Bacterial small signal recognition particle RNA: a 98-nucleotide RNA sequence from Eilatimonas milleporae. About the family: The signal recognition particle (SRP) is a universally conserved ribonucleoprotein involved in the co-translational targeting of proteins to membranes. Its family is annotated with signal recognition particle, plasma membrane targeting and SRP-dependent cotranslational protein targeting to membrane, signal sequence recognition in the Gene Ontology. The family is grouped with related families in Rfam's "SRP clan". The literature on the family includes a 2003 paper in Nucleic Acids Res by Rosenblad et al., "SRPDB: Signal Recognition Particle Database".

[Rfam]
RNA sequence: CGGGAGUGCCAGCGGACGGGUCCGCUCGCCAACCCGGUCAGGUCCGAAAGGAAGCAGCCGUAACGAGUCCGGCUUGGGUCGUCGGCUCUCCCACCCAC
Number, nucleotide and partner (000 for none) at each position: 001c000002g092003g091004g090005a089006g088007u000008g000009c085010c084011a000012g082013c081014g080015g000016a000017c076018g075019g074020g073021u072022c071023c000024g068025c067026u066027c065028g064029c000030c000031a000032a000033c000034c000035c060036g059037g058038u057039c000040a000041g000042g000043u052044c051045c050046g000047a000048a000049a000050g045051g044052a043053a000054g000055c000056a000057g038058c037059c036060g035061u000062a000063a000064c028065g027066a026067g025068u024069c000070c000071g022072g021073c020074u019075u018076g017077g000078g000079u000080c014081g013082u012083c000084g010085g009086c000087u000088c006089u005090c004091c003092c002093a000094c000095c000096c000097a000098c000